[Rfam]
RNA sequence: AAAGUCCUGAAGGAGGAAUUAUCCGUACGCCUUCUUAGCACCGGGAAGCAGCGUCUGGGUAACCAGAGGUUGUAAGUUUCUUAUGGGCAAAGAUGCAGGCCGUAACGAAAGUGAACCUAUAUGUAGCCUCGUCAACUAAUUGAAGAUGCCGACCUUUUGGACAUCAAGGGGAAGGCCGUAGUGCCCUGGGAGUAGAAAACGGAAAUUCUUUUCAGGUGAUCUUUCGGGGGUAGCAGGGGA
Numbered sequence: 001a002a003a004g005u006c007c008u009g010a011a012g013g014a015g016g017a018a019u020u021a022u023c024c025g026u027a028c029g030c031c032u033u034c035u036u037a038g039c040a041c042c043g044g045g046a047a048g049c050a051g052c053g054u055c056u057g058g059g060u061a062a063c064c065a066g067a068g069g070u071u072g073u074a075a076g077u078u079u080c081u082u083a084u085g086g087g088c089a090a091a092g093a094u095g096c097a098g099g100c101c102g103u104a105a106c107g108a109a110a111g112u113g114a115a116c117c118u119a120u121a122u123g124u125a126g127c128c129u130c131g132u133c134a135a136c137u138a139a140u141u142g143a144a145g146a147u148g149c150c151g152a153c154c155u156u157u158u159g160g161a162c163a164u165c166a167a168g169g170g171g172a173a174g175g176c177c178g179u180a181g182u183g184c185c186c187u188g189g190g191a192g193u194a195g196a197a198a199a200c201g202g203a204a205a206u207u208c209u210u211u212u213c214a215g216g217u218g219a220u221c222u223u224u225c226g227g228g229g230g231u232a233g234c235a236g237g238g239g240a
Stems, first nucleotide, its partner, number of pairs: 009034005016028001018026002036090001038088002042085002044081002046078002048073005054067005123234001124232001126231003129227003142224006148176003153170004185216008

The family of this 240-nucleotide RNA sequence from Desulfobacter postgatei is "Group II catalytic intron D1-D4-6". The organism belongs to Desulfobacter postgatei, within Bacteria. A search with the family's covariance model found it, with a score of 59 bits.